[Rfam]
RNA sequence: ACCUGGGCACGAUUCCCGUCGAGGCUUCGCUAGAAAAUACUAGUGGCACGACCGCCCCGCGGGAAACCGACCCAGUGUACAAACCUUAGGGA
Numbered sequence: 001a002c003c004u005g006g007g008c009a010c011g012a013u014u015c016c017c018g019u020c021g022a023g024g025c026u027u028c029g030c031u032a033g034a035a036a037a038u039a040c041u042a043g044u045g046g047c048a049c050g051a052c053c054g055c056c057c058c059g060c061g062g063g064a065a066a067c068c069g070a071c072c073c074a075g076u077g078u079a080c081a082a083a084c085c086u087u088a089g090g091g092a
Stems, first nucleotide, its partner, number of pairs: 001076002004074004013065007
RNA: L31-Corynebacteriaceae ribosomal protein leader